[Rfam]
Shown here is a 72-nucleotide RNA from Chenopodium quinoa, a member of the family "Small nucleolar RNA Z105". It is annotated as a C/D-box small nucleolar RNA. A search with the family's covariance model found it, with a score of 52 bits.
RNA sequence: GCAUUAUGAUGAUGAAACUUUAUACAACCGACCAAGUUCGUGAAUUGGAUAAAAACCUCCUACUCAUACUGA
Number, nucleotide and partner (000 for none) at each position: 001g000002c000003a000004u000005u000006a067007u066008g065009a064010u000011g000012a000013u000014g000015a000016a000017a000018c000019u000020u000021u000022a000023u000024a000025c000026a000027a000028c048029c047030g000031a000032c042033c000034a000035a000036g000037u000038u000039c000040g000041u000042g032043a000044a000045u000046u000047g029048g028049a000050u000051a000052a000053a000054a000055a000056c000057c000058u000059c000060c000061u000062a000063c000064u009065c008066a007067u006068a000069c000070u000071g000072a000
On this family, see Chen et al., Nucleic Acids Res 2003: "The high diversity of snoRNAs in plants: identification and comparative study of 120 snoRNA genes from Oryza sativa". Rfam links the family to the GO terms RNA processing and nucleolus. The base pairs follow the family's consensus structure, which was predicted with CMfinder.